[Rfam]
RNA sequence: GCUGGGACCAGUUUGGACCAGUCAUGGGCAAAAGAAAUGUGUUUUGUCCACCAUUGCAGUCUUCCCAGAGCAAAAGUGGAGGUCUCUGUCCGCUUUAGAAGAGUGAACUAAACCGGAUCGUUCCCCUCCAUACACC
Numbered sequence: 001g002c003u004g005g006g007a008c009c010a011g012u013u014u015g016g017a018c019c020a021g022u023c024a025u026g027g028g029c030a031a032a033a034g035a036a037a038u039g040u041g042u043u044u045u046g047u048c049c050a051c052c053a054u055u056g057c058a059g060u061c062u063u064c065c066c067a068g069a070g071c072a073a074a075a076g077u078g079g080a081g082g083u084c085u086c087u088g089u090c091c092g093c094u095u096u097a098g099a100a101g102a103g104u105g106a107a108c109u110a111a112a113c114c115g116g117a118u119c120g121u122u123c124c125c126c127u128c129c130a131u132a133c134a135c136c
Stems, first nucleotide, its partner, number of pairs: 004065003009059001011057002025050005034043002078129005086120001088118003092114001094112005